RNA sequence: CCCUAGCCCUGAUAGUAGCGGCAUCCUUUUUUGUCUUGAAGGGAACUUAAAGAGUGGGAGACAAAAAAGAUAUAGCGGAUAGCAGGAAUCAGC
Number, nucleotide and partner (000 for none) at each position: 001c000002c000003c000004u000005a000006g000007c000008c000009c085010u084011g083012a000013u081014a080015g000016u000017a000018g076019c075020g000021g000022c000023a071024u070025c069026c000027u000028u000029u066030u065031u064032u063033g062034u061035c060036u059037u000038g000039a000040a000041g000042g000043g000044a000045a000046c000047u000048u000049a000050a000051a000052g000053a000054g000055u000056g000057g000058g000059a036060g035061a034062c033063a032064a031065a030066a029067a000068a000069g025070a024071u023072a000073u000074a000075g019076c018077g000078g000079a000080u014081a013082g000083c011084a010085g009086g000087a000088a000089u000090c000091a000092g000093c000
About this RNA: The record is a 93-nucleotide RNA from Chryseobacterium sp. Leaf404, which matches "Flavo-1 RNA" in Rfam. Lineage of the source: Bacteria > Pseudomonadati > Bacteroidota > Flavobacteriales > Chryseobacterium. By type it is a small RNA.